[Rfam]
The family of this 273-nucleotide RNA is "Alphaproteobacteria transfer-messenger RNA". By type it is a non-coding RNA gene. It scores 60 bits against the family's covariance model. A reference for the family is Williams and Bartel (1996), "Phylogenetic analysis of tmRNA secondary structure", RNA.
RNA sequence: GAUGUUGACGCUUCUGACUGGGUAGAAUACACUUCUGCUCUAUAACGAAUUCACGACGGUCUAGGGACUGCUGGGCAGUACAGCACAUCUCCACCAAUCUAUGGGGAUGAAAUAGGAAUCGACCGGACCGUCGUGAUUUUUCUUAAAAUAACUGUUGCAAUAUUCAAGCAGAUAUGCUAAAUAUGCUUCAGACGCAAACGACAAUAGUGUUCAGGUGCGCUUAGCGGCGUGAUCGGAGUUUUCUCGAGAGCUUGGCAACAGAAUCUCGAGACC
Numbered sequence: 001g002a003u004g005u006u007g008a009c010g011c012u013u014c015u016g017a018c019u020g021g022g023u024a025g026a027a028u029a030c031a032c033u034u035c036u037g038c039u040c041u042a043u044a045a046c047g048a049a050u051u052c053a054c055g056a057c058g059g060u061c062u063a064g065g066g067a068c069u070g071c072u073g074g075g076c077a078g079u080a081c082a083g084c085a086c087a088u089c090u091c092c093a094c095c096a097a098u099c100u101a102u103g104g105g106g107a108u109g110a111a112a113u114a115g116g117a118a119u120c121g122a123c124c125g126g127a128c129c130g131u132c133g134u135g136a137u138u139u140u141u142c143u144u145a146a147a148a149u150a151a152c153u154g155u156u157g158c159a160a161u162a163u164u165c166a167a168g169c170a171g172a173u174a175u176g177c178u179a180a181a182u183a184u185g186c187u188u189c190a191g192a193c194g195c196a197a198a199c200g201a202c203a204a205u206a207g208u209g210u211u212c213a214g215g216u217g218c219g220c221u222u223a224g225c226g227g228c229g230u231g232a233u234c235g236g237a238g239u240u241u242u243c244u245c246g247a248g249a250g251c252u253u254g255g256c257a258a259c260a261g262a263a264u265c266u267c268g269a270g271a272c273c
Stems, first nucleotide, its partner, number of pairs: 025040002028037002044143001051136007059128003064124002069085005086109007144180001146178001149176002236253004244269006